RNA sequence: GGUCAUGAGUAUCAGCGCCAAGCCCCGGCUUGCUGAUCGGCAACCCUCCAACCGCGGUGGGGUGCUCCGGGUGAUGACCGGGUUGUGGGAUCGCAGCAGCGAAGCCCCGGCAAGCGCGGGUC
Number, nucleotide and partner (000 for none) at each position: 001g079002g078003u077004c076005a000006u000007g000008a000009g038010u000011a037012u036013c035014a034015g033016c032017g000018c000019c000020a000021a030022g029023c000024c000025c000026c000027g000028g000029c022030u021031u000032g016033c015034u014035g013036a012037u011038c009039g066040g065041c064042a000043a000044c062045c061046c060047u000048c057049c056050a000051a000052c000053c000054g000055c000056g049057g048058u000059g000060g046061g045062g044063u000064g041065c040066u039067c000068c000069g000070g000071g000072u000073g000074a000075u000076g004077a003078c002079c001080g000081g000082g111083u110084u109085g108086u000087g106088g105089g000090a000091u000092c000093g000094c000095a000096g000097c000098a000099g000100c000101g000102a000103a000104g000105c088106c087107c000108c085109g084110g083111c082112a000113a000114g000115c000116g000117c000118g000119g000120g000121u000122c000
RNA: SAM (S-adenosyl methionine) riboswitch aptamer